[Rfam]
RNA sequence: ACUGGCAAGGAUGAUAUACACUUGCCCUCACUUAGACCAUAGUUUGUUGAUGAGAGAAUUGUUCUGAACCAGU
Numbered sequence: 001a002c003u004g005g006c007a008a009g010g011a012u013g014a015u016a017u018a019c020a021c022u023u024g025c026c027c028u029c030a031c032u033u034a035g036a037c038c039a040u041a042g043u044u045u046g047u048u049g050a051u052g053a054g055a056g057a058a059u060u061g062u063u064c065u066g067a068a069c070c071a072g073u
Stems, first nucleotide, its partner, number of pairs: 001073005

Shown here is a 73-nucleotide RNA from Microcebus murinus, a member of the family "Small nucleolar RNA SNORD103/SNORD85". Gene Ontology terms of the family: RNA processing and nucleolus. Rfam 15.1 lists 1,349 matches to the family in 595 species. The pairing is the family consensus, mapped onto this sequence.